[Rfam]
RNA sequence: GGCUCUGUGGCUUAGUUGGUUACAGCACCUGUCUAGUAAACAGAAGAUCCUGGGUUUAAAUCCCAGUGGACCCU
Numbered sequence: 001g002g003c004u005c006u007g008u009g010g011c012u013u014a015g016u017u018g019g020u021u022a023c024a025g026c027a028c029c030u031g032u033c034u035a036g037u038a039a040a041c042a043g044a045a046g047a048u049c050c051u052g053g054g055u056u057u058a059a060a061u062c063c064c065a066g067u068g069g070a071c072c073c074u
Stems, first nucleotide, its partner, number of pairs: 001073002004070004010026003029043004050066005
RNA: tRNA